Rfam assigns this 79-nucleotide RNA from Leptobrachium leishanense to the family "mir-92 microRNA precursor family". Its family is annotated with RISC complex and miRNA-mediated post-transcriptional gene silencing in the Gene Ontology. From the family's description: This family represents the microRNA precursor mir-92. Human miR-92 has two predicted hairpin precursor sequences: mir-92-1 on chromosome 13 and mir-92-2 on chromosome X. miR-92 has also been cloned from mouse embryonic stem cells. Taxonomically the source falls in Leptobrachium (Eukaryota, Metazoa, Gnathostomata, Sarcopterygii). For this family Rfam cites "Embryonic stem cell-specific MicroRNAs" (Houbaviy et al., Dev Cell, 2003). A search with the family's covariance model found it, with a score of 66 bits.
RNA sequence: ACUCACCCGUGGGUGGGGAUUUGUUGCACUACUUGUGACUCCAAAUAGUAUUGCACUUGUCCCGGCCUGUGGAGGAAAA
Numbered sequence: 001a002c003u004c005a006c007c008c009g010u011g012g013g014u015g016g017g018g019a020u021u022u023g024u025u026g027c028a029c030u031a032c033u034u035g036u037g038a039c040u041c042c043a044a045a046u047a048g049u050a051u052u053g054c055a056c057u058u059g060u061c062c063c064g065g066c067c068u069g070u071g072g073a074g075g076a077a078a079a
Stems, first nucleotide, its partner, number of pairs: 004075001009070006016063005023056002026054003030050004